[Rfam]
RNA sequence: ACAGUACAAACUGAGCAGGCACGGAUGCUGGGCAUCCGUAUAGCCGGGUCACUUUUAGUGACAGCAGAUGAACAUAGGGCAUCUGCGGGACAGUA
Numbered sequence: 001a002c003a004g005u006a007c008a009a010a011c012u013g014a015g016c017a018g019g020c021a022c023g024g025a026u027g028c029u030g031g032g033c034a035u036c037c038g039u040a041u042a043g044c045c046g047g048g049u050c051a052c053u054u055u056u057a058g059u060g061a062c063a064g065c066a067g068a069u070g071a072a073c074a075u076a077g078g079g080c081a082u083c084u085g086c087g088g089g090a091c092a093g094u095a
Stems, first nucleotide, its partner, number of pairs: 010094004016089001018045003021039006048062005064086006

Rfam assigns this 95-nucleotide RNA from Blautia pseudococcoides to the family "NiCo (Nickel/Cobalt) riboswitch aptamer". The base pairs follow the family's consensus structure, which is taken from published work. A reference for the family is Furukawa et al. (2015), "Bacterial riboswitches cooperatively bind Ni(2+) or Co(2+) ions and control expression of heavy metal transporters", Mol Cell. Gene Ontology terms of the family: cobalt ion binding and metal ion homeostasis. Clan: NiCo_riboswitches.